Background
A member of the RNA family "Ribosomal protein L20 leader" from Metabacillus arenae, 130 nucleotides long. The base pairs follow the family's consensus structure, which was predicted with CMfinder. Rfam links the family to the GO term regulation of gene expression. The match comes from Rfam's covariance-model search (86 bits). NCBI's taxonomy places the organism under Bacteria, Bacillota, Bacilli, Caryophanales, Metabacillus. This family is a putative r-protein leader autoregulatory structure found in B. subtilis and other low-GC Gram-positive bacteria. It is located in the 5' untranslated regions of mRNAs encoding initiation factor 3 followed by ribosomal proteins L35 and L20 (infC-rpmI-rplT). A Rho-independent transcription terminator structure that is probably involved in regulation is included at the 3' end.
RNA sequence: AUUUCAAAGAAGAAGCACCCGCUUCUCACCUGAUUGACGCUGUAAGCUGUUGACAGGUAUUACGAUAAGUCUUUUUAAAAUUGUGAAAUCGUAGUGUGGGUGUUUUGUGCGCCCACACUUUUUUAUUGUU
Numbered sequence: 001a002u003u004u005c006a007a008a009g010a011a012g013a014a015g016c017a018c019c020c021g022c023u024u025c026u027c028a029c030c031u032g033a034u035u036g037a038c039g040c041u042g043u044a045a046g047c048u049g050u051u052g053a054c055a056g057g058u059a060u061u062a063c064g065a066u067a068a069g070u071c072u073u074u075u076u077a078a079a080a081u082u083g084u085g086a087a088a089u090c091g092u093a094g095u096g097u098g099g100g101u102g103u104u105u106u107g108u109g110c111g112c113c114c115a116c117a118c119u120u121u122u123u124u125a126u127u128g129u130u
Stems, first nucleotide, its partner, number of pairs: 011026006028058003036051003039047002095117009